[Rfam]
RNA sequence: AGCAAUACUGCACUGGUAAGGUAUGCAUCCGAAGCCUCUUGAAGGUUACCAAAGGCUCUCCAUACCCUACUUCGACUCAAAACGUCCCCAAACAAAUUGAACGAUAACAUGUCUCUCCAAAUAUCUGAGCUUGGGUAUACGGGGAAACCCAAAUCCCUGGGAAAGAUUAGUGUUAUGGCAAAAUUGAGCGUA
Dot-bracket structure: .............[[[[..((((((.(.((.......................))...).)))).))...(.((.(((((...(..{.....)..]]]]...}....((((.(.((......((((....((((((..........)))))).(((...))).)))).)).).))))......))))))).)
The record is a 192-nucleotide RNA from Anopheles stephensi, which matches "drz-agam-2-2 ribozyme" in Rfam.
The match comes from Rfam's covariance-model search (132 bits).
On this family, see Webb et al., Science 2009: "Widespread occurrence of self-cleaving ribozymes".
The family's consensus secondary structure is taken from published work.
Rfam 15.1 lists 486 matches to the family in 10 species.